[Rfam]
Shown here is a 98-nucleotide RNA from Pseudomonas knackmussii, a member of the family "t44 RNA". For this family Rfam cites "Transcriptome analysis of Escherichia coli using high-density oligonucleotide probe arrays" (Tjaden et al., Nucleic Acids Res, 2002). The family's consensus secondary structure was predicted with LocARNA. This family consists of a number of bacterial RNA genes of between 135 and 170 bases in length. Rfam classes the family as a small RNA. Lineage of the source: Bacteria > Pseudomonadales > Pseudomonadaceae > Pseudomonas > Pseudomonas knackmussii.
RNA sequence: CCCGCGAAGCCUUAAAACCACACAUGCAUCGACACGAUGGCCUGGGUGCCUUUCGACAAGAUCGAAGGGUUGGCCAUUGGGAUGCAUGGAGGCCCAAC
Numbered sequence: 001c002c003c004g005c006g007a008a009g010c011c012u013u014a015a016a017a018c019c020a021c022a023c024a025u026g027c028a029u030c031g032a033c034a035c036g037a038u039g040g041c042c043u044g045g046g047u048g049c050c051u052u053u054c055g056a057c058a059a060g061a062u063c064g065a066a067g068g069g070u071u072g073g074c075c076a077u078u079g080g081g082a083u084g085c086a087u088g089g090a091g092g093c094c095c096a097a098c
Stems, first nucleotide, its partner, number of pairs: 023088008035079008048070005